Shown here is a 113-nucleotide RNA sequence from Theobroma cacao, a member of the family "MIR5225 microRNA precursor family".

RNA sequence: AAGAGGGACUCCUGUCGCAGGAGAGAUGACGCCUUCUGCCAUAUAAGAGGCAUGCAUCCCUUUUCAAUUUGAGCAGUAAGCUUCAUCUCUCCUCGACUGAAGCCCCUUUCAAU
Numbered sequence: 001a002a003g004a005g006g007g008a009c010u011c012c013u014g015u016c017g018c019a020g021g022a023g024a025g026a027u028g029a030c031g032c033c034u035u036c037u038g039c040c041a042u043a044u045a046a047g048a049g050g051c052a053u054g055c056a057u058c059c060c061u062u063u064u065c066a067a068u069u070u071g072a073g074c075a076g077u078a079a080g081c082u083u084c085a086u087c088u089c090u091c092c093u094c095g096a097c098u099g100a101a102g103c104c105c106c107u108u109u110c111a112a113u
Base pairs, nucleotide, nucleotide: 005105006104007103009102010101012099014097015096016095017094019093020092021091023089024088025087026086027085028084029083

Rfam links the family to the GO terms RISC complex and miRNA-mediated post-transcriptional gene silencing. It scores 90 bits against the family's covariance model.